[Rfam]
RNA sequence: CUGUAGUGAUAACAGUCUUAGGACAGGCUUGGGUUAACCAUGAAAUAGACCAUGUUCUGAGGCAGG
Numbered sequence: 001c002u003g004u005a006g007u008g009a010u011a012a013c014a015g016u017c018u019u020a021g022g023a024c025a026g027g028c029u030u031g032g033g034u035u036a037a038c039c040a041u042g043a044a045a046u047a048g049a050c051c052a053u054g055u056u057c058u059g060a061g062g063c064a065g066g
Base pairs, nucleotide, nucleotide: 001065002064003063004062
This 66-nucleotide RNA sequence from Nannospalax galili belongs to the Rfam family "Small nucleolar RNA SNORD58". A reference for the family is Galardi et al. (2002), "Purified box C/D snoRNPs are able to reproduce site-specific 2'-O-methylation of target RNA in vitro", Mol Cell Biol. By type it is a C/D-box small nucleolar RNA. The source organism's lineage runs through Eukaryota, Craniata, Dipnotetrapodomorpha, Myomorpha and Nannospalax. Rfam's curators write: snoRNA U58 is found in introns 1, 3 and 6 of the ribosomal protein RPL17 gene in humans. The family's consensus secondary structure was predicted with PFOLD.